[Rfam]
RNA sequence: UCCACGUGCCCUCGCAGAUGAGACCCUAUCAAUGUUGCCUCUGCUUUCACUUGAGUCAACAGAGUAGUGCAAUAUUGCUUAUAGGGUCUUGCCUGUGAGGGAGG
Numbered sequence: 001u002c003c004a005c006g007u008g009c010c011c012u013c014g015c016a017g018a019u020g021a022g023a024c025c026c027u028a029u030c031a032a033u034g035u036u037g038c039c040u041c042u043g044c045u046u047u048c049a050c051u052u053g054a055g056u057c058a059a060c061a062g063a064g065u066a067g068u069g070c071a072a073u074a075u076u077g078c079u080u081a082u083a084g085g086g087u088c089u090u091g092c093c094u095g096u097g098a099g100g101g102a103g104g
Stems, first nucleotide, its partner, number of pairs: 020090010030077009041067007

This 104-nucleotide sequence from Gasterosteus aculeatus belongs to the Rfam family "mir-454 microRNA precursor family". It scores 72 bits against the family's covariance model.